[Rfam]
RNA sequence: CGCAGCCGUGCGGGAGAGUUCCGGGGGUAGCCUCGGACGCCGAAGGAGCAGCACCUCCCCGGCAAUCUCUCAGGCACAAGGGACCGUGCGGAGUUU
Numbered sequence: 001c002g003c004a005g006c007c008g009u010g011c012g013g014g015a016g017a018g019u020u021c022c023g024g025g026g027g028u029a030g031c032c033u034c035g036g037a038c039g040c041c042g043a044a045g046g047a048g049c050a051g052c053a054c055c056u057c058c059c060c061g062g063c064a065a066u067c068u069c070u071c072a073g074g075c076a077c078a079a080g081g082g083a084c085c086g087u088g089c090g091g092a093g094u095u096u
Base pairs, nucleotide, nucleotide: 006091007090008089009088010087011086012085013084020037021036022035023034039075040074041073042071043070046069047068048067052062

Shown here is a 96-nucleotide RNA sequence from Nocardia seriolae, a member of the family "Glycine riboswitch aptamer". The base pairs follow the family's consensus structure. A search with the family's covariance model found it, with a score of 63 bits. The organism belongs to Nocardia, within Bacteria.